About this RNA: The family of this 100-nucleotide RNA from Paenibacillus uliginis is "Purine riboswitch aptamer". The organism belongs to Paenibacillus uliginis, within Bacteria. It scores 67 bits against the family's covariance model.

[Rfam]
RNA sequence: CAACAACGAUAAGUGCUUUUUCGUAUAAUCCUGGGAAUCGGCCCGGGAGUCUCUACAAGGUCACCGUAAUGAUCUGGCUACGAAAAGAAGAGCUGCAAAG
Numbered sequence: 001c002a003a004c005a006a007c008g009a010u011a012a013g014u015g016c017u018u019u020u021u022c023g024u025a026u027a028a029u030c031c032u033g034g035g036a037a038u039c040g041g042c043c044c045g046g047g048a049g050u051c052u053c054u055a056c057a058a059g060g061u062c063a064c065c066g067u068a069a070u071g072a073u074c075u076g077g078c079u080a081c082g083a084a085a086a087g088a089a090g091a092g093c094u095g096c097a098a099a100g
Stems, first nucleotide, its partner, number of pairs: 018086008029048007058075006